[Rfam]
RNA sequence: AACUCUCAUUAAGAAUCACAGAGGUGAUAGCAACCUGCCCUAGCAGGCGAAGGUGCUAAAAACAAUGAGCCUAACUUUUAGGAAAAGUAUGUCAACAU
Numbered sequence: 001a002a003c004u005c006u007c008a009u010u011a012a013g014a015a016u017c018a019c020a021g022a023g024g025u026g027a028u029a030g031c032a033a034c035c036u037g038c039c040c041u042a043g044c045a046g047g048c049g050a051a052g053g054u055g056c057u058a059a060a061a062a063c064a065a066u067g068a069g070c071c072u073a074a075c076u077u078u079u080a081g082g083a084a085a086a087g088u089a090u091g092u093c094a095a096c097a098u
Base pairs, nucleotide, nucleotide: 006068007067008066009065010064015028016027017026018025019024029057030056031055034053035052036051037048038047039046041094043092044091045090070082071081072080073079